[Rfam]
RNA: Bacterial small subunit ribosomal RNA, nucleotides 916 to 1499
Organism: Alteromonadaceae bacterium M269
RNA sequence: UGACGGGGGCCCGCACAAGCGGUGGAGCAUGUGGUUUAAUUCGAUGCAACGCGAAGAACCUUACCAUCCCUUGACAUACUGAGAACUUAGCAGAGAUGCUUUGGUGCCUUCGGGAACUCAGAUACAGGUGCUGCAUGGCUGUCGUCAGCUCGUGUCGUGAGAUGUUGGGUUAAGUCCCGCAACGAGCGCAACCCUUGUCCUUAGUUGCCAUCAUUUAGUUGGGCACUUUAAGGAGACUGCCGGUGACAAACCGGAGGAAGGUGGGGACGACGUCAAGUCAUCAUGGCCCUUACGGGAUGGGCUACACACGUGCUACAAUGGCAGGUACAGAGGGCAGCGAGACCGCGAGGUGAAGCGAACCCCUUAAAGCCUGUCGUAGUCCGGAUUGGAGUCUGCAACUCGACUCCAUGAAGUCGGAAUCGCUAGUAAUCGCAGGUCAGCAUACUGCGGUGAAUACGUUCCCGGGCCUUGUACACACCGCCCGUCACACCAUGGGAGUGGGAUGCAAAAGAAGUAGUUAGUCUAACCUUCGGGAGGACGAUUACCACUUUGUGUUUCAUGACUGGGGUGAAGUCGUAACAAGG
Numbered sequence: 001u002g003a004c005g006g007g008g009g010c011c012c013g014c015a016c017a018a019g020c021g022g023u024g025g026a027g028c029a030u031g032u033g034g035u036u037u038a039a040u041u042c043g044a045u046g047c048a049a050c051g052c053g054a055a056g057a058a059c060c061u062u063a064c065c066a067u068c069c070c071u072u073g074a075c076a077u078a079c080u081g082a083g084a085a086c087u088u089a090g091c092a093g094a095g096a097u098g099c100u101u102u103g104g105u106g107c108c109u110u111c112g113g114g115a116a117c118u119c120a121g122a123u124a125c126a127g128g129u130g131c132u133g134c135a136u137g138g139c140u141g142u143c144g145u146c147a148g149c150u151c152g153u154g155u156c157g158u159g160a161g162a163u164g165u166u167g168g169g170u171u172a173a174g175u176c177c178c179g180c181a182a183c184g185a186g187c188g189c190a191a192c193c194c195u196u197g198u199c200c201u202u203a204g205u206u207g208c209c210a211u212c213a214u215u216u217a218g219u220u221g222g223g224c225a226c227u228u229u230a231a232g233g234a235g236a237c238u239g240c241c242g243g244u245g246a247c248a249a250a251c252c253g254g255a256g257g258a259a260g261g262u263g264g265g266g267a268c269g270a271c272g273u274c275a276a277g278u279c280a281u282c283a284u285g286g287c288c289c290u291u292a293c294g295g296g297a298u299g300g301g302c303u304a305c306a307c308a309c310g311u312g313c314u315a316c317a318a319u320g321g322c323a324g325g326u327a328c329a330g331a332g333g334g335c336a337g338c339g340a341g342a343c344c345g346c347g348a349g350g351u352g353a354a355g356c357g358a359a360c361c362c363c364u365u366a367a368a369g370c371c372u373g374u375c376g377u378a379g380u381c382c383g384g385a386u387u388g389g390a391g392u393c394u395g396c397a398a399c400u401c402g403a404c405u406c407c408a409u410g411a412a413g414u415c416g417g418a419a420u421c422g423c424u425a426g427u428a429a430u431c432g433c434a435g436g437u438c439a440g441c442a443u444a445c446u447g448c449g450g451u452g453a454a455u456a457c458g459u460u461c462c463c464g465g466g467c468c469u470u471g472u473a474c475a476c477a478c479c480g481c482c483c484g485u486c487a488c489a490c491c492a493u494g495g496g497a498g499u500g501g502g503a504u505g506c507a508a509a510a511g512a513a514g515u516a517g518u519u520a521g522u523c524u525a526a527c528c529u530u531c532g533g534g535a536g537g538a539c540g541a542u543u544a545c546c547a548c549u550u551u552g553u554g555u556u557u558c559a560u561g562a563c564u565g566g567g568g569u570g571a572a573g574u575c576g577u578a579a580c581a582a583g584g
Stems, first nucleotide, its partner, number of pairs: 001475002003472003007469007015459002019423005024316001026314008034305002040055004064300007077124002079121005086103001089100004105116001107114002127289002130287004136283002138278003141274001143272002148187006154163003166179004193266004198234007208223002212221002237257002240254005320375007332363003337356002342351003382413001387408007429451007478583001480580001483576002488570004493565003498560012514545006521539004527534002